RNA: Purine riboswitch aptamer
Organism: Bacillus mesophilus
RNA sequence: AUAUAAUUAUUUCUAAUUGUUCGUAUAUCCUCAGAAAUAUGGUUUGAGGGUCUCUAGAAGGAACCGUAAAGUCCUAACUACGAAUGGGUAUUUAAUUGUA
Numbered sequence: 001a002u003a004u005a006a007u008u009a010u011u012u013c014u015a016a017u018u019g020u021u022c023g024u025a026u027a028u029c030c031u032c033a034g035a036a037a038u039a040u041g042g043u044u045u046g047a048g049g050g051u052c053u054c055u056a057g058a059a060g061g062a063a064c065c066g067u068a069a070a071g072u073c074c075u076a077a078c079u080a081c082g083a084a085u086g087g088g089u090a091u092u093u094a095a096u097u098g099u100a
Base pairs, nucleotide, nucleotide: 018086019085020084021083022082023081024080025079029049030048031047032046033045034044035043059075060074061073062072